mir-196 microRNA precursor family: a 74-nucleotide sequence from Esox lucius. Pairs were carried over by alignment from the consensus structure, which was predicted with PFOLD. Lineage of the source: Eukaryota > Craniata > Osteoglossocephalai > Esociformes > Esox. Its family is annotated with RISC complex and gene silencing by miRNA in the Gene Ontology.

[Rfam]
RNA sequence: UGUGUGGUUUAGGUAGUUUCAAGUUGUUGGGCUGGACGUGUAUCACAGGAACCUGAAACUGCCUGAAUUACUCC
Numbered sequence: 001u002g003u004g005u006g007g008u009u010u011a012g013g014u015a016g017u018u019u020c021a022a023g024u025u026g027u028u029g030g031g032c033u034g035g036a037c038g039u040g041u042a043u044c045a046c047a048g049g050a051a052c053c054u055g056a057a058a059c060u061g062c063c064u065g066a067a068u069u070a071c072u073c074c
Stems, first nucleotide, its partner, number of pairs: 004071016023052003027048003031044001